[Rfam]
RNA: Purine riboswitch aptamer
Organism: Anaerosolibacter carboniphilus
RNA sequence: UACAAGAAAAAAUAUACGGUUCAUAUAAUCGCAGAGAUAUGGUCUGCAAGUUUCUACCGGACUACCGUAAAUGGUCUGACUAUGAGCAAGCGUGUUUCUAAG
Dot-bracket structure: ..................(((((((...(.(((((.......))))).)........(((((((.......)))))))..)))))))...............